[Rfam]
RNA: mir-31 microRNA precursor family
RNA sequence: AUGUGUAGAAAAGGCAAGAUGUUGGCAUAGCUGCUGUCGCCCAAGCCCAGCUGUACCUACAUAUUGCCCUUUCUCAACUUG
Number, nucleotide and partner (000 for none) at each position: 001a000002u000003g000004u000005g000006u000007a074008g073009a072010a071011a070012a000013g068014g067015c066016a065017a064018g000019a062020u061021g060022u000023u000024g057025g056026c000027a054028u053029a052030g051031c050032u000033g000034c000035u000036g000037u000038c000039g000040c000041c000042c000043a000044a000045g000046c000047c000048c000049a000050g031051c030052u029053g028054u027055a000056c025057c024058u000059a000060c021061a020062u019063a000064u017065u016066g015067c014068c013069c000070u011071u010072u009073c008074u007075c000076a000077a000078c000079u000080u000081g000